Mammalian CPEB3 ribozyme: a 75-nucleotide sequence from Alligator mississippiensis. The organism belongs to Alligator, within Eukaryota. The family's consensus secondary structure is taken from published work. Rfam describes the family as follows. The mammalian CPEB3 ribozyme is a self cleaving RNA located in the second intron of the CPEB3 gene which belongs to a family of genes regulating messenger RNA polyadenylation. This ribozyme is highly conserved and found only in mammals. The CPEB3 ribozyme is structurally and biochemically related to the human hepatitis delta virus (HDV) ribozyme and the HDV ribozyme is proposed to have arisen from the human transcriptome. There is currently only one other known self cleaving ribozyme in mammals, the CoTC motif.
[Rfam]
RNA sequence: AGCUGCCAUAAUGACCAUAGCAGAAGUGCUCAUGUUGCAGCCCUGUCAGAUUUUAAUGAAUCUGUGAAUUCUGCU
Numbered sequence: 001a002g003c004u005g006c007c008a009u010a011a012u013g014a015c016c017a018u019a020g021c022a023g024a025a026g027u028g029c030u031c032a033u034g035u036u037g038c039a040g041c042c043c044u045g046u047c048a049g050a051u052u053u054u055a056a057u058g059a060a061u062c063u064g065u066g067a068a069u070u071c072u073g074c075u
Stems, first nucleotide, its partner, number of pairs: 013042001015040001019075007026038003047064007